[Rfam]
Shown here is a 102-nucleotide RNA sequence from Albula glossodonta, a member of the family "Vault RNA". A search with the family's covariance model found it, with a score of 50 bits. The family's RNA type in Rfam is non-coding RNA gene. A reference for the family is Stadler et al. (2009), "Evolution of Vault RNAs", Mol Biol Evol.
RNA sequence: GCGCCGGUUUAGCUCAGUGGUUACUUCGUAUUGCAAACCUUCGGUUUCGCCUUUCUUCGCUCUCUUUAGAGAGUCGAACCACGGGCGCUGUUCGCCGUUAAA
Numbered sequence: 001g002c003g004c005c006g007g008u009u010u011a012g013c014u015c016a017g018u019g020g021u022u023a024c025u026u027c028g029u030a031u032u033g034c035a036a037a038c039c040u041u042c043g044g045u046u047u048c049g050c051c052u053u054u055c056u057u058c059g060c061u062c063u064c065u066u067u068a069g070a071g072a073g074u075c076g077a078a079c080c081a082c083g084g085g086c087g088c089u090g091u092u093c094g095c096c097g098u099u100a101a102a
Base pairs, nucleotide, nucleotide: 002097003096005094006093007092012086013085014084015083017082018081019080020079025078026077027076028075